Rfam assigns this 117-nucleotide RNA from Salmo salar to the family "U5 spliceosomal RNA". The base pairs follow the family's consensus structure, which is taken from published work. The family's RNA type in Rfam is spliceosomal small nuclear RNA. Rfam's curators write: U5 RNA is a component of both types of known spliceosome. The precise function of this molecule is unknown, though it is known that the 5' loop is required for splice site selection and p220 binding, and that both the 3' stem-loop and the Sm site are important for Sm protein binding and cap methylation.

[Rfam]
RNA sequence: CAACUCUGGUUUCUCUUCAUUAGGCACAAGCCUUUCGCCUUUUAUUAAAUACUUCUGUGGAGAGAAACACUUAUGAGUUCAACGUGUUUUUGGAAGGGCUUUGCUUCUGGCAGAGCC
Numbered sequence: 001c002a003a004c005u006c007u008g009g010u011u012u013c014u015c016u017u018c019a020u021u022a023g024g025c026a027c028a029a030g031c032c033u034u035u036c037g038c039c040u041u042u043u044a045u046u047a048a049a050u051a052c053u054u055c056u057g058u059g060g061a062g063a064g065a066a067a068c069a070c071u072u073a074u075g076a077g078u079u080c081a082a083c084g085u086g087u088u089u090u091u092g093g094a095a096g097g098g099c100u101u102u103g104c105u106u107c108u109g110g111c112a113g114a115g116c117c
Stems, first nucleotide, its partner, number of pairs: 003078004009068011028054003033049003098116006